[Rfam]
RNA sequence: CUCGACAAUGGCAAACCUGCCGAAAGGCAGGGACGCAAAGCUACAGGGCCUUCUGAAUGAUGGCAGCCAGCUACCGAAG
Numbered sequence: 001c002u003c004g005a006c007a008a009u010g011g012c013a014a015a016c017c018u019g020c021c022g023a024a025a026g027g028c029a030g031g032g033a034c035g036c037a038a039a040g041c042u043a044c045a046g047g048g049c050c051u052u053c054u055g056a057a058u059g060a061u062g063g064c065a066g067c068c069a070g071c072u073a074c075c076g077a078a079g
Stems, first nucleotide, its partner, number of pairs: 001079001003076002011036002016031006034066001039072004046068002048064003
RNA: c-di-GMP-I-GGC riboswitch aptamer
Organism: Paenibacillus paeoniae